[Rfam]
Plastid-ycf3 group II-D1 intron: a 47-nucleotide RNA sequence from Momordica charantia. The literature on the family includes a 2023 paper in Plant Commun by Richter et al., "Retrograde signaling in plants: A critical review focusing on the GUN pathway and beyond".
RNA sequence: AUUCCUUCUAUUGUGUAUCCCCGGUUAAUGUAAUCUUAGAUGCUUUA
Dot-bracket structure: .........((((........))))......(.(.......).)...